[Rfam]
The family of this 170-nucleotide RNA sequence from Firmicutes bacterium CAG:194 is "Clostridiales-1 RNA".
RNA sequence: UGAUGUAAGUGUCAAAAGUCCAAAAUGCGAUUGUGCUUGCACAAGUAAGCAUUUUAGACUUGUUGACACGCCGAACACCAAAAACGUAAUCAAAUGCUGUGAAUACAGCAUUUUAUGAAAGUUUGAGGUGUUCGAGAAUUGCGAAAAUUGCGUAGCAAUAAAAUGUACCC
Numbered sequence: 001u002g003a004u005g006u007a008a009g010u011g012u013c014a015a016a017a018g019u020c021c022a023a024a025a026u027g028c029g030a031u032u033g034u035g036c037u038u039g040c041a042c043a044a045g046u047a048a049g050c051a052u053u054u055u056a057g058a059c060u061u062g063u064u065g066a067c068a069c070g071c072c073g074a075a076c077a078c079c080a081a082a083a084a085c086g087u088a089a090u091c092a093a094a095u096g097c098u099g100u101g102a103a104u105a106c107a108g109c110a111u112u113u114u115a116u117g118a119a120a121g122u123u124u125g126a127g128g129u130g131u132u133c134g135a136g137a138a139u140u141g142c143g144a145a146a147a148u149u150g151c152g153u154a155g156c157a158a159u160a161a162a163a164u165g166u167a168c169c170c
Stems, first nucleotide, its partner, number of pairs: 002169001004167004010068004016061005022055007031044005072134008082124004089116002092113009138159005
Overview: It is annotated as a small RNA.